[Rfam]
RNA sequence: CUUUUAAGUAGAGGUGCGCUAAAUAUGAGUAAAGGUAAGUAGGGUGAUGCCUGUGAUCUAUCUUGAAAGGAUUUAGCGCCGAAGUUGUGAUUGAUAUCGGUCAAUACAGCUGGUGUUGUUACCGAAUAGGUACUGCACUGCCAUAGUAUUUUUUGUCGGGAUGACAAGAAGAAAUUACUAUGGAGCGCUACUGAUAGG
Numbered sequence: 001c002u003u004u005u006a007a008g009u010a011g012a013g014g015u016g017c018g019c020u021a022a023a024u025a026u027g028a029g030u031a032a033a034g035g036u037a038a039g040u041a042g043g044g045u046g047a048u049g050c051c052u053g054u055g056a057u058c059u060a061u062c063u064u065g066a067a068a069g070g071a072u073u074u075a076g077c078g079c080c081g082a083a084g085u086u087g088u089g090a091u092u093g094a095u096a097u098c099g100g101u102c103a104a105u106a107c108a109g110c111u112g113g114u115g116u117u118g119u120u121a122c123c124g125a126a127u128a129g130g131u132a133c134u135g136c137a138c139u140g141c142c143a144u145a146g147u148a149u150u151u152u153u154u155g156u157c158g159g160g161a162u163g164a165c166a167a168g169a170a171g172a173a174a175u176u177a178c179u180a181u182g183g184a185g186c187g188c189u190a191c192u193g194a195u196a197g198g
Base pairs, nucleotide, nucleotide: 007192008191009190010189011188016079017078018077019076020075021074022073023072024071032064033063034062035061036060037059039057083111084110085109086108087107088106090105091104092103093102094101112139113138114137115136116135118133119132122129141183142182143181144180145179146178147177
Rfam assigns this 198-nucleotide sequence from Shewanella aestuarii to the family "Lysine riboswitch aptamer". Taxonomically the source falls in Shewanella (Bacteria, Pseudomonadati, Gammaproteobacteria, Shewanellaceae). It scores 119 bits against the family's covariance model. Rfam links the family to the GO term lysine biosynthetic process.